[Rfam]
RNA sequence: AGUCUCGUUAACCUCAAAUUAACACAUCGCCGUUAACUUAAAUCCUAUCCAGUUCUCUGGAUUUUGCAGAGUGGUUUCUCCCUCUGUUUGACGCCUCCCUGUUAACUUUCGAGAGCCGUUUCGACGGCUCUUUUCUU
Numbered sequence: 001a002g003u004c005u006c007g008u009u010a011a012c013c014u015c016a017a018a019u020u021a022a023c024a025c026a027u028c029g030c031c032g033u034u035a036a037c038u039u040a041a042a043u044c045c046u047a048u049c050c051a052g053u054u055c056u057c058u059g060g061a062u063u064u065u066g067c068a069g070a071g072u073g074g075u076u077u078c079u080c081c082c083u084c085u086g087u088u089u090g091a092c093g094c095c096u097c098c099c100u101g102u103u104a105a106c107u108u109u110c111g112a113g114a115g116c117c118g119u120u121u122c123g124a125c126g127g128c129u130c131u132u133u134u135c136u137u
Stems, first nucleotide, its partner, number of pairs: 001043001003041001020035004047062004069084003073081002090103004111132009
A member of the RNA family "Alphaproteobacterial sRNA BjrC1505" from Devosia sp. Root413D1, 137 nucleotides long. Pairs were carried over by alignment from the consensus structure. A search with the family's covariance model found it, with a score of 55 bits. The source organism's lineage runs through Bacteria, Pseudomonadati, Alphaproteobacteria, Hyphomicrobiales and Devosia. It is annotated as a small RNA. The literature on the family includes a 2012 paper in RNA Biol by Madhugiri et al., "Small RNAs of the Bradyrhizobium/Rhodopseudomonas lineage and their analysis".